[Rfam]
RNA sequence: GAGACUGGGGUGCUGGGCUCCCCUAGACUAGGACUCCAGUGCCCUCCUCUCC
Numbered sequence: 001g002a003g004a005c006u007g008g009g010g011u012g013c014u015g016g017g018c019u020c021c022c023c024u025a026g027a028c029u030a031g032g033a034c035u036c037c038a039g040u041g042c043c044c045u046c047c048u049c050u051c052c
Stems, first nucleotide, its partner, number of pairs: 001051004007045011019033003